[Rfam]
RNA: mir-965 microRNA precursor family
RNA sequence: AUCUUGAGGGGAAAAGUCAUAUGCUAUAUGUUUAAAAUUUAUCAUAAGCGUAUAGCUUUUCCCCUUGAGUG
Numbered sequence: 001a002u003c004u005u006g007a008g009g010g011g012a013a014a015a016g017u018c019a020u021a022u023g024c025u026a027u028a029u030g031u032u033u034a035a036a037a038u039u040u041a042u043c044a045u046a047a048g049c050g051u052a053u054a055g056c057u058u059u060u061c062c063c064c065u066u067g068a069g070u071g
Stems, first nucleotide, its partner, number of pairs: 003069005009063003013059002017055001019053003024048002027046004